The record is a 324-nucleotide RNA sequence from Fukomys damarensis, which matches "Small Cajal body-specific RNA 7" in Rfam. The pairing is the family consensus, mapped onto this sequence. On this family, see Darzacq et al., EMBO J 2002: "Cajal body-specific small nuclear RNAs: a novel class of 2'-O-methylation and pseudouridylation guide RNAs". It scores 354 bits against the family's covariance model.
RNA sequence: UGGAAAUGAUGAAAUAGAGAUAUGUGGGUGUCGAAUGUUGCAUGACUGAAAAUUUUAAUAGUCUGUUAAGUAAUUCUUUUAGUUAAUAUUUUAUAGUUAGUUAAUAGAGUGUGUGUGCAUGUGUGUGUGCUUGAGGUGGUUAGGAAAGGGGGCACUGAAUGGUGAUGCUGAUAUUGGAGUGCAUCUGAGGCUGUUGUAGAAAUAACAUGGGUUGUUGAUUACAACAUUGCCAGUGAUUAUAACCCAAGAACAGCUCACCUAACUAGCCUAGCACCCCAAAAUCUCUAACAGGUUCAUUAAACGUGGUCCUGUGAUCUGAUCCAA
Numbered sequence: 001u002g003g004a005a006a007u008g009a010u011g012a013a014a015u016a017g018a019g020a021u022a023u024g025u026g027g028g029u030g031u032c033g034a035a036u037g038u039u040g041c042a043u044g045a046c047u048g049a050a051a052a053u054u055u056u057a058a059u060a061g062u063c064u065g066u067u068a069a070g071u072a073a074u075u076c077u078u079u080u081a082g083u084u085a086a087u088a089u090u091u092u093a094u095a096g097u098u099a100g101u102u103a104a105u106a107g108a109g110u111g112u113g114u115g116u117g118c119a120u121g122u123g124u125g126u127g128u129g130c131u132u133g134a135g136g137u138g139g140u141u142a143g144g145a146a147a148g149g150g151g152g153c154a155c156u157g158a159a160u161g162g163u164g165a166u167g168c169u170g171a172u173a174u175u176g177g178a179g180u181g182c183a184u185c186u187g188a189g190g191c192u193g194u195u196g197u198a199g200a201a202a203u204a205a206c207a208u209g210g211g212u213u214g215u216u217g218a219u220u221a222c223a224a225c226a227u228u229g230c231c232a233g234u235g236a237u238u239a240u241a242a243c244c245c246a247a248g249a250a251c252a253g254c255u256c257a258c259c260u261a262a263c264u265a266g267c268c269u270a271g272c273a274c275c276c277c278a279a280a281a282u283c284u285c286u287a288a289c290a291g292g293u294u295c296a297u298u299a300a301a302c303g304u305g306g307u308c309c310u311g312u313g314a315u316c317u318g319a320u321c322c323a324a
Stems, first nucleotide, its partner, number of pairs: 001323004192226008201216006